[Rfam]
The record is a 90-nucleotide RNA sequence from Tupaia belangeri, which matches "Small nucleolar RNA SNORD111" in Rfam. A reference for the family is Galardi et al. (2002), "Purified box C/D snoRNPs are able to reproduce site-specific 2'-O-methylation of target RNA in vitro", Mol Cell Biol. The match comes from Rfam's covariance-model search (86 bits). Rfam classes the family as a C/D-box small nucleolar RNA.
RNA sequence: CAGCCUGAAGUGAUGACUUUACAUUUCAUGUCUCUUCUCUGAUCAUUUUUCUCUGAAGAUAUAUUUUUCCUUACUGAUCUGAUCAGGCUA
Numbered sequence: 001c002a003g004c005c006u007g008a009a010g011u012g013a014u015g016a017c018u019u020u021a022c023a024u025u026u027c028a029u030g031u032c033u034c035u036u037c038u039c040u041g042a043u044c045a046u047u048u049u050u051c052u053c054u055g056a057a058g059a060u061a062u063a064u065u066u067u068u069c070c071u072u073a074c075u076g077a078u079c080u081g082a083u084c085a086g087g088c089u090a
Stems, first nucleotide, its partner, number of pairs: 002089004